This 71-nucleotide RNA belongs to the Rfam family "tRNA". The family's consensus secondary structure is taken from published work.

RNA sequence: GGAAAUGUGCCCGAAAGUCAGGGAUCACUUUGAUAGAGUGAAAUAUAUGGGUUCAAACCCCAUCAUCUCCU
Numbered sequence: 001g002g003a004a005a006u007g008u009g010c011c012c013g014a015a016a017g018u019c020a021g022g023g024a025u026c027a028c029u030u031u032g033a034u035a036g037a038g039u040g041a042a043a044u045a046u047a048u049g050g051g052u053u054c055a056a057a058c059c060c061c062a063u064c065a066u067c068u069c070c071u
Base pairs, nucleotide, nucleotide: 001070002069003068005066006065007064010023011022012021025041026040027039028038029037047063048062049061050060051059